[Rfam]
RNA sequence: GAAGCGUGAACCCGGCACGGCAUCCGCCGGUCAGACCGGGAUCGCCUCACCGCAAGGUGGAGCUAUC
Numbered sequence: 001g002a003a004g005c006g007u008g009a010a011c012c013c014g015g016c017a018c019g020g021c022a023u024c025c026g027c028c029g030g031u032c033a034g035a036c037c038g039g040g041a042u043c044g045c046c047u048c049a050c051c052g053c054a055a056g057g058u059g060g061a062g063c064u065a066u067c
Stems, first nucleotide, its partner, number of pairs: 011040005018029004044063002047060005

Notes: The family of this 67-nucleotide sequence from Micromonospora sonchi is "Transposase-2 RNA". The family's consensus secondary structure is taken from published work. The organism belongs to Micromonospora, within Bacteria. The family's RNA type in Rfam is small RNA.